[Rfam]
RNA sequence: AUCAUCAGCAAGCGGGUCCUCCUCCUCCCAAACCCCUUGCGGCGACCACCGGCGCUCCUCCUCCCAAGCCGAUGGUCAUGAUCGAGAAGCCCGACGCACCUCCUCCCGCGUCGGGCUUUUUCG
Numbered sequence: 001a002u003c004a005u006c007a008g009c010a011a012g013c014g015g016g017u018c019c020u021c022c023u024c025c026u027c028c029c030a031a032a033c034c035c036c037u038u039g040c041g042g043c044g045a046c047c048a049c050c051g052g053c054g055c056u057c058c059u060c061c062u063c064c065c066a067a068g069c070c071g072a073u074g075g076u077c078a079u080g081a082u083c084g085a086g087a088a089g090c091c092c093g094a095c096g097c098a099c100c101u102c103c104u105c106c107c108g109c110g111u112c113g114g115g116c117u118u119u120u121u122c123g
Stems, first nucleotide, its partner, number of pairs: 008040002011037002014034002017031001044077005050071004087118011
Record summary: Shown here is a 123-nucleotide RNA sequence from Gellertiella hungarica, a member of the family "Alphaproteobacterial ar14". A reference for the family is Robledo et al. (2017), "A conserved alpha-proteobacterial small RNA contributes to osmoadaptation and symbiotic efficiency of rhizobia on legume roots", Environ Microbiol. Rfam classes the family as a small RNA. Its family is annotated with biological process involved in symbiotic interaction in the Gene Ontology.